[Rfam]
RNA sequence: CCAUGCUGAACUCGGGUUUCGUAAGCAGCGGGCUGUUAAACUGUUAAAACGAGUUCGUUGUCGACGAAACCUGCAUAUCGUGUGG
Numbered sequence: 001c002c003a004u005g006c007u008g009a010a011c012u013c014g015g016g017u018u019u020c021g022u023a024a025g026c027a028g029c030g031g032g033c034u035g036u037u038a039a040a041c042u043g044u045u046a047a048a049a050c051g052a053g054u055u056c057g058u059u060g061u062c063g064a065c066g067a068a069a070c071c072u073g074c075a076u077a078u079c080g081u082g083u084g085g
Base pairs, nucleotide, nucleotide: 001085002084003083004082005081006080013073014072015071016070017069018068019067020066021065030056031055032054033053034052
Record summary: mir-981 microRNA precursor family: an 85-nucleotide RNA sequence from Bactrocera dorsalis. NCBI's taxonomy places the organism under Eukaryota, Eumetazoa, Pancrustacea, Bactrocera, Bactrocera dorsalis complex. Pairs were carried over by alignment from the consensus structure, which was predicted with RNAalifold. It scores 74 bits against the family's covariance model. Gene Ontology terms of the family: RISC complex and miRNA-mediated post-transcriptional gene silencing.